RNA sequence: GGAGGCAGUCAGUAGCCUGGUGGCGCUCACGGUCUUCAAAACCGAUGGGGGGCGUAUCCCGUCCCCGGUGUGUUCGAUUCACAUCUGCCUCC
Numbered sequence: 001g002g003a004g005g006c007a008g009u010c011a012g013u014a015g016c017c018u019g020g021u022g023g024c025g026c027u028c029a030c031g032g033u034c035u036u037c038a039a040a041a042c043c044g045a046u047g048g049g050g051g052g053c054g055u056a057u058c059c060c061g062u063c064c065c066c067g068g069u070g071u072g073u074u075c076g077a078u079u080c081a082c083a084u085c086u087g088c089c090u091c092c
Stems, first nucleotide, its partner, number of pairs: 001092008012027001015024003030044004048066005069083004
Shown here is a 92-nucleotide RNA sequence from Pelovirga terrestris, a member of the family "Selenocysteine transfer RNA".